[Rfam]
RNA sequence: GGGAAACCGCCGCCUAAUCGCCAUACGCGAGCCGGGGAACCACGUACCUGGGGUGCAUCCGCGACAGAGCGGUAGGGAUCUUCCGUCCCGAACCCGUCAGCUAACCCGGUCGGCGGCUGACGGAAGGACGC
Numbered sequence: 001g002g003g004a005a006a007c008c009g010c011c012g013c014c015u016a017a018u019c020g021c022c023a024u025a026c027g028c029g030a031g032c033c034g035g036g037g038a039a040c041c042a043c044g045u046a047c048c049u050g051g052g053g054u055g056c057a058u059c060c061g062c063g064a065c066a067g068a069g070c071g072g073u074a075g076g077g078a079u080c081u082u083c084c085g086u087c088c089c090g091a092a093c094c095c096g097u098c099a100g101c102u103a104a105c106c107c108g109g110u111c112g113g114c115g116g117c118u119g120a121c122g123g124a125a126g127g128a129c130g131c
Stems, first nucleotide, its partner, number of pairs: 011115004018030003031110006041050002051095003059072004075089004